A member of the RNA family "RAGATH-18 RNA", 62 nucleotides long. The sequence is in the family's curated seed alignment. The family's RNA type in Rfam is small RNA. Rfam describes the family as follows. Actinobacteria, Firmicutes, Fusobacteria, Thermotogae (1 example).
RNA sequence: GCUGUGGAGUGUCAAACAAAAGUACGGUAGCUUCGGCAAAGACGGACACGUUGAAGCAGUAA
Numbered sequence: 001g002c003u004g005u006g007g008a009g010u011g012u013c014a015a016a017c018a019a020a021a022g023u024a025c026g027g028u029a030g031c032u033u034c035g036g037c038a039a040a041g042a043c044g045g046a047c048a049c050g051u052u053g054a055a056g057c058a059g060u061a062a
Stems, first nucleotide, its partner, number of pairs: 001060005009049005025044002030037002